[Rfam]
This 158-nucleotide sequence from Capsicum baccatum belongs to the Rfam family "U1 spliceosomal RNA". By type it is a spliceosomal small nuclear RNA. It scores 111 bits against the family's covariance model. Its family is annotated with mRNA 5'-splice site recognition, pre-mRNA 5'-splice site binding and U1 snRNP in the Gene Ontology. Its Rfam clan is "U1 clan".
RNA sequence: UAACUUACCUAGACGAGGUUAAUGGGCGAUCAAUAAGACCCAUGGACUAGGUUGGUAACCUCCAUUGCACUUUGGAGGGUGCCCACCUAAGGUCAUCCCAAGUGUCGAGCCUACAUCAUAAUUUAUGGUAGAGGGAGACAGCGUUCGCGCGACCCCUA
Numbered sequence: 001u002a003a004c005u006u007a008c009c010u011a012g013a014c015g016a017g018g019u020u021a022a023u024g025g026g027c028g029a030u031c032a033a034u035a036a037g038a039c040c041c042a043u044g045g046a047c048u049a050g051g052u053u054g055g056u057a058a059c060c061u062c063c064a065u066u067g068c069a070c071u072u073u074g075g076a077g078g079g080u081g082c083c084c085a086c087c088u089a090a091g092g093u094c095a096u097c098c099c100a101a102g103u104g105u106c107g108a109g110c111c112u113a114c115a116u117c118a119u120a121a122u123u124u125a126u127g128g129u130a131g132a133g134g135g136a137g138a139c140a141g142c143g144u145u146c147g148c149g150c151g152a153c154c155c156c157u158a
Base pairs, nucleotide, nucleotide: 012117013116015114016048017047019045020044021043023042024041025040026039049088050087051086053085055082056081057080059078060077061076062075063074090112091111092110093108094107098104133157134156135155137153141150142149143148